Shown here is a 207-nucleotide RNA from Waltiozyma mucosa, a member of the family "Small nucleolar RNA snR4". Its family is annotated with RNA processing and nucleolus in the Gene Ontology. Taxonomically the source falls in Waltiozyma (Eukaryota, Ascomycota, Saccharomycetes, Phaffomycetales).
RNA sequence: AACUAUUACAGUCGAUGAAGAUAGGUUAUAGUUAAUUCAUCUUAAUUGGCUGGCAAUUUUUAAUUAUUUUUACAAUUUUUUUAUACUCAAUCUUUGAUGAUGGAGUUGGGAGAAUUUUUAAUGAUUAAAAUGCGGGCUUAAUGAGGAUUGUGUCGUGGCUUUCACCACCUUCAUAGCGAUGCUUCAUAGUAUCAUCAUCUGAGGCUG
Numbered sequence: 001a002a003c004u005a006u007u008a009c010a011g012u013c014g015a016u017g018a019a020g021a022u023a024g025g026u027u028a029u030a031g032u033u034a035a036u037u038c039a040u041c042u043u044a045a046u047u048g049g050c051u052g053g054c055a056a057u058u059u060u061u062a063a064u065u066a067u068u069u070u071u072a073c074a075a076u077u078u079u080u081u082u083a084u085a086c087u088c089a090a091u092c093u094u095u096g097a098u099g100a101u102g103g104a105g106u107u108g109g110g111a112g113a114a115u116u117u118u119u120a121a122u123g124a125u126u127a128a129a130a131u132g133c134g135g136g137c138u139u140a141a142u143g144a145g146g147a148u149u150g151u152g153u154c155g156u157g158g159c160u161u162u163c164a165c166c167a168c169c170u171u172c173a174u175a176g177c178g179a180u181g182c183u184u185c186a187u188a189g190u191a192u193c194a195u196c197a198u199c200u201g202a203g204g205c206u207g
Base pairs, nucleotide, nucleotide: 009207010206011205012204013203016164017163018162019161021160025159026158027157028156029150030149031148032147033146038143039142040141055065056064057063066138067136068135069134071132072131074126075125076124077123079121166181167180169178